[Rfam]
The family of this 163-nucleotide RNA sequence from Salvator merianae is "U1 spliceosomal RNA". The family has 100 seed sequences and 40,184 matches in Rfam 15.1. A search with the family's covariance model found it, with a score of 133 bits. The family's consensus secondary structure is taken from published work.
RNA sequence: AUACUUACCUGGCAGGGGAGUCACCUUGAUCAUGGAGGAGGUUUUCCCAGGGUGAAGCUCAGCCAUUGCACUCCGGCUGUGCUGAUCCCUGAGAUUUCCCAAAUGUGGGAAACCUGACUGCAUAAUAUGUGGUAGUGGGGGACUGCGUGCACACUUUCCCAUG
Numbered sequence: 001a002u003a004c005u006u007a008c009c010u011g012g013c014a015g016g017g018g019a020g021u022c023a024c025c026u027u028g029a030u031c032a033u034g035g036a037g038g039a040g041g042u043u044u045u046c047c048c049a050g051g052g053u054g055a056a057g058c059u060c061a062g063c064c065a066u067u068g069c070a071c072u073c074c075g076g077c078u079g080u081g082c083u084g085a086u087c088c089c090u091g092a093g094a095u096u097u098c099c100c101a102a103a104u105g106u107g108g109g110a111a112a113c114c115u116g117a118c119u120g121c122a123u124a125a126u127a128u129g130u131g132g133u134a135g136u137g138g139g140g141g142a143c144u145g146c147g148u149g150c151a152c153a154c155u156u157u158c159c160c161a162u163g
Base pairs, nucleotide, nucleotide: 012121013120014119015118016048017047018046019045020044023042024041025040026039027038049090050089051088052087054086056083057082058081060079061078062077063076064075092115093114095111096110098108099107137162139160140159141158142157145154147152

The family's RNA type in Rfam is spliceosomal small nuclear RNA.